A member of the RNA family "SAM riboswitch aptamer (S box leader)" from Bacillus subtilis, 119 nucleotides long.
The source organism's lineage runs through Bacteria, Bacillati, Bacillota, Bacilli and Bacillus.
RNA sequence: GUUCUUAUCAAGAGAAGCAGAGGGACUGGCCCGACGAAGCUUCAGCAACCGGUGUAAUGGCGAAAGCCAUGACCAAGGUGCUAAAUCCAGCAAGCUCGAACAGCUUGGAAGAUAAGAAC
Numbered sequence: 001g002u003u004c005u006u007a008u009c010a011a012g013a014g015a016a017g018c019a020g021a022g023g024g025a026c027u028g029g030c031c032c033g034a035c036g037a038a039g040c041u042u043c044a045g046c047a048a049c050c051g052g053u054g055u056a057a058u059g060g061c062g063a064a065a066g067c068c069a070u071g072a073c074c075a076a077g078g079u080g081c082u083a084a085a086u087c088c089a090g091c092a093a094g095c096u097c098g099a100a101c102a103g104c105u106u107g108g109a110a111g112a113u114a115a116g117a118a119c
Stems, first nucleotide, its partner, number of pairs: 001119001003117007014043005022032003026090004044082004049078002051074003086110001091107006